[Rfam]
RNA sequence: AUCCCGUGACAGGGGCGUCCGGAUCUGCCCGGGCUGAGAAGCACCCUUAGAACCUGAACCAGAUCAUGCUGGCGGAGGAAGUCGCGUGCCGGGCCCG
Number, nucleotide and partner (000 for none) at each position: 001a000002u000003c000004c000005c000006g085007u084008g083009a082010c081011a047012g046013g045014g044015g000016c041017g034018u033019c032020c031021g030022g000023a000024u000025c000026u000027g000028c000029c000030c021031g020032g019033g018034c017035u000036g000037a000038g000039a000040a000041g016042c000043a000044c014045c013046c012047u011048u000049a000050g000051a000052a000053c078054c077055u076056g000057a000058a000059c072060c071061a070062g069063a000064u000065c000066a000067u000068g000069c062070u061071g060072g059073c000074g000075g000076a055077g054078g053079a000080a000081g010082u009083c008084g007085c006086g000087u000088g000089c000090c000091g000092g000093g000094c000095c000096c000097g000

A member of the RNA family "TPP riboswitch aptamer (THI element)" from Rhodovulum sp. BSW8, 97 nucleotides long. The organism belongs to Rhodovulum, within Bacteria. A search with the family's covariance model found it, with a score of 61 bits.